[Rfam]
RNA sequence: GAGACAAAGUAGCUUGUCGCUGCGCUAAGGUUUCAAGGCGGAGAGGAAAGUCCGGGCAACGUAGAGCACCAUACUUCCUAACGGGAAGCUGCCUGUCCUUUCAUGCGUGAUAGAGAAAAAGGCAGACUAAUGCAACAGAAAAGAACCGCCAUUGGAGUCUCGACUUUAACGGUAAGGGUGAAAAGGUGAGGUAAGAGCUCACCGGAGGCAUAGUGAUAUGUCUCGUCCAUGUAUGUUAUGGGUUGUAAGAUCAUGUAUACCGACGUCUAAGUGUUGCUCGCACAAUGUCGGGGGGUAGAUCGCUAGAGAUUGCAGGCGACUGCAAUAGUAGAUAAAUGACAAGCACCUGAUCUUCGGAGAGGGCACAGAACCCGGCUUAUAGCUUUGUCUCUUUC
Numbered sequence: 001g002a003g004a005c006a007a008a009g010u011a012g013c014u015u016g017u018c019g020c021u022g023c024g025c026u027a028a029g030g031u032u033u034c035a036a037g038g039c040g041g042a043g044a045g046g047a048a049a050g051u052c053c054g055g056g057c058a059a060c061g062u063a064g065a066g067c068a069c070c071a072u073a074c075u076u077c078c079u080a081a082c083g084g085g086a087a088g089c090u091g092c093c094u095g096u097c098c099u100u101u102c103a104u105g106c107g108u109g110a111u112a113g114a115g116a117a118a119a120a121g122g123c124a125g126a127c128u129a130a131u132g133c134a135a136c137a138g139a140a141a142a143g144a145a146c147c148g149c150c151a152u153u154g155g156a157g158u159c160u161c162g163a164c165u166u167u168a169a170c171g172g173u174a175a176g177g178g179u180g181a182a183a184a185g186g187u188g189a190g191g192u193a194a195g196a197g198c199u200c201a202c203c204g205g206a207g208g209c210a211u212a213g214u215g216a217u218a219u220g221u222c223u224c225g226u227c228c229a230u231g232u233a234u235g236u237u238a239u240g241g242g243u244u245g246u247a248a249g250a251u252c253a254u255g256u257a258u259a260c261c262g263a264c265g266u267c268u269a270a271g272u273g274u275u276g277c278u279c280g281c282a283c284a285a286u287g288u289c290g291g292g293g294g295g296u297a298g299a300u301c302g303c304u305a306g307a308g309a310u311u312g313c314a315g316g317c318g319a320c321u322g323c324a325a326u327a328g329u330a331g332a333u334a335a336a337u338g339a340c341a342a343g344c345a346c347c348u349g350a351u352c353u354u355c356g357g358a359g360a361g362g363g364c365a366c367a368g369a370a371c372c373c374g375g376c377u378u379a380u381a382g383c384u385u386u387g388u389c390u391c392u393u394u395c
Stems, first nucleotide, its partner, number of pairs: 001391010011380001012344007020043002023040004048378003052375005057245004064279004069241005074088005089125005126236002130234005146177002148173003152169007185203006204227001205224008249301004260291005271283004309326007